RNA sequence: CCACGUUUGCCACACUCUGGUGCUAUUCUUUUUCUGUGAAUAGUUCCUAUUUCAGUGCAAACAAGAUUAUAACGCCGUUACUCACCGGAAGGGAUUCCGUAUGAACUUUUCGGUCCAUGAACGCGGACAU
Number, nucleotide and partner (000 for none) at each position: 001c000002c000003a000004c000005g000006u000007u060008u059009g058010c000011c000012a000013c000014a000015c000016u000017c000018u000019g047020g046021u000022g044023c043024u000025a041026u040027u039028c038029u000030u000031u000032u000033u000034c000035u000036g000037u000038g028039a027040a026041u025042a000043g023044u022045u000046c020047c019048u000049a000050u000051u000052u000053c000054a000055g000056u000057g000058c009059a008060a007061a000062c000063a000064a000065g000066a000067u000068u000069a000070u000071a000072a000073c125074g124075c123076c000077g000078u000079u000080a000081c000082u000083c000084a000085c113086c112087g111088g110089a000090a108091g107092g106093g000094a000095u105096u104097c103098c000099g000100u000101a000102u000103g097104a096105a095106c092107u091108u090109u000110u088111c087112g086113g085114u000115c000116c000117a000118u000119g000120a000121a000122c000123g075124c074125g073126g000127a000128c000129a000130u000
Rfam assigns this 130-nucleotide RNA from Wickerhamiella sorbophila to the family "Small nucleolar RNA snR80". Gene Ontology terms of the family: nucleolus and RNA processing. By type it is an H/ACA-box small nucleolar RNA. On this family, see Schattner et al., Nucleic Acids Res 2004: "Genome-wide searching for pseudouridylation guide snoRNAs: analysis of the Saccharomyces cerevisiae genome". The organism belongs to Wickerhamiella, within Eukaryota.